[Rfam]
The record is a 91-nucleotide sequence from Bifidobacterium mongoliense, which matches "Fluoride riboswitch aptamer (crcB RNA motif)" in Rfam. A search with the family's covariance model found it, with a score of 40 bits.

RNA sequence: GGUGAGCAUGGGUAUGAAGUUACCCAAGAUAGUUUGUCGCGGUCGUGAUGAGCGUCUGAACCGCUGUUAGGCUGAUGACUUCUGCAGAGAU
Numbered sequence: 001g002g003u004g005a006g007c008a009u010g011g012g013u014a015u016g017a018a019g020u021u022a023c024c025c026a027a028g029a030u031a032g033u034u035u036g037u038c039g040c041g042g043u044c045g046u047g048a049u050g051a052g053c054g055u056c057u058g059a060a061c062c063g064c065u066g067u068u069a070g071g072c073u074g075a076u077g078a079c080u081u082c083u084g085c086a087g088a089g090a091u
Stems, first nucleotide, its partner, number of pairs: 010025004016082006063072003

The organism belongs to Bifidobacterium mongoliense, within Bacteria. Gene Ontology terms of the family: positive regulation of gene expression and response to fluoride.